Background:
This 361-nucleotide sequence from Granulicatella elegans belongs to the Rfam family "Bacterial RNase P class B". A search with the family's covariance model found it, with a score of 337 bits. For this family Rfam cites "Ribonuclease P: unity and diversity in a tRNA processing ribozyme" (Frank and Pace, Annu Rev Biochem, 1998). The family's consensus secondary structure is taken from published work. It is annotated as a ribozyme.
RNA sequence: AACUUUGAGUAAUCGCGGUAGUGAUUGCACUACUGAGGAAAGUCCAUGCUCGCACAGACUGAGAUGUCUGUAGUGUUCGUGCUUAGCGAAACAAUAAGCUAAGGCAACAAUUUGUUGACGGCAGAAAAAAUGGCUAAGGAUUUCUAUGCCAAAGUAUUCUUGAAAGUGCCACAGUGACGAAGCAUUUCUGGAAACGGAAAUGGUGGAACGCGGUAAACCCCUCGAGCGAGCAACCCAAACAUAUGGUAGGGGCACUCUUUAUUAGGAAAUGAACGAAAUAAGAGGCACAUUUGUGUAGACAGAUGAUUACUGAAAUCAAUUAGAACCUGCUAAUUGAUGGAACAGAACAUGGCUUAUAGAA
Dot-bracket structure: ...(((((((((((.((((((........))))))....[[[.[[[[[(((((((((((......)))))).....(((.(((((((..........))))))((((((...))))).)((.((((....((((...((....))..)))).....)))).....(((((............((((((((....)))))))).........)))..))))).))))))))...(((............)))...(((((.(.................))))))((((....))))........)))))))...(((((((((......))))))))).........]]]]]]]].).)))